[Rfam]
Overview
Shown here is a 106-nucleotide sequence from Nyctereutes procyonoides, a member of the family "mir-8834 microRNA precursor family". Rfam links the family to the GO terms RISC complex and miRNA-mediated post-transcriptional gene silencing. NCBI's taxonomy places the organism under Eukaryota, Chordata, Tetrapoda, Carnivora, Nyctereutes.
RNA sequence: AGGAGGAACAGCAACAGUGGCGGCGGCCAGCUCCCCAGCUCUGGAGUCAGCUCCCGCAGUAACUACGGAGCUCUCAGUCCGCAGGGCCUGGAUGCUCCGGGGGCAG
Numbered sequence: 001a002g003g004a005g006g007a008a009c010a011g012c013a014a015c016a017g018u019g020g021c022g023g024c025g026g027c028c029a030g031c032u033c034c035c036c037a038g039c040u041c042u043g044g045a046g047u048c049a050g051c052u053c054c055c056g057c058a059g060u061a062a063c064u065a066c067g068g069a070g071c072u073c074u075c076a077g078u079c080c081g082c083a084g085g086g087c088c089u090g091g092a093u094g095c096u097c098c099g100g101g102g103g104c105a106g
Stems, first nucleotide, its partner, number of pairs: 002098004007093001009090003012086001019079003023075001025074002029072006037064001041059003